[Rfam]
RNA sequence: UGCCCAACACUUAUUUUUAAGUAGUGGCAAUAAAACUCCCGACCAAGAUAUUAAGCUCCUCAUUGAGCACUCUUGGUCGGGUCAGUAGUAGGAAUACUGCUGGGUGGUCGCAAGACCGCC
Numbered sequence: 001u002g003c004c005c006a007a008c009a010c011u012u013a014u015u016u017u018u019a020a021g022u023a024g025u026g027g028c029a030a031u032a033a034a035a036c037u038c039c040c041g042a043c044c045a046a047g048a049u050a051u052u053a054a055g056c057u058c059c060u061c062a063u064u065g066a067g068c069a070c071u072c073u074u075g076g077u078c079g080g081g082u083c084a085g086u087a088g089u090a091g092g093a094a095u096a097c098u099g100c101u102g103g104g105u106g107g108u109c110g111c112a113a114g115a116c117c118g119c120c
Stems, first nucleotide, its partner, number of pairs: 001029004009022005038081011055068004083102008103120006
The record is a 120-nucleotide RNA sequence, which matches "LOOT RNA" in Rfam. Pairs were carried over by alignment from the consensus structure, which is taken from published work. Rfam classes the family as a small RNA. Rfam's curators put it in the seed alignment.